[Rfam]
RNA sequence: AUUCAUCUAGGAGAUGAAGCUCUCCUUAGAUUUAGGAUCUAGAACUACUGAAAAAAGUUAAUGGCUUCUACAUCGAU
Numbered sequence: 001a002u003u004c005a006u007c008u009a010g011g012a013g014a015u016g017a018a019g020c021u022c023u024c025c026u027u028a029g030a031u032u033u034a035g036g037a038u039c040u041a042g043a044a045c046u047a048c049u050g051a052a053a054a055a056a057g058u059u060a061a062u063g064g065c066u067u068c069u070a071c072a073u074c075g076a077u
Base pairs, nucleotide, nucleotide: 010025011024012023013022016068017067018066019065020064021063047058048057049056